[Rfam]
RNA sequence: AAAUCGAAACGGCAAACCUAUUAAAAAGUAGGGACGCAAAACUAUGGACCUAAGGAAGAUAAUUCUAUGGUCGCCAAGUUACCGAA
Numbered sequence: 001a002a003a004u005c006g007a008a009a010c011g012g013c014a015a016a017c018c019u020a021u022u023a024a025a026a027a028g029u030a031g032g033g034a035c036g037c038a039a040a041a042c043u044a045u046g047g048a049c050c051u052a053a054g055g056a057a058g059a060u061a062a063u064u065c066u067a068u069g070g071u072c073g074c075c076a077a078g079u080u081a082c083c084g085a086a
Stems, first nucleotide, its partner, number of pairs: 012037002017032006040080004045076003048071003055065003
RNA: c-di-GMP-I riboswitch aptamer
Organism: Paenibacillus crassostreae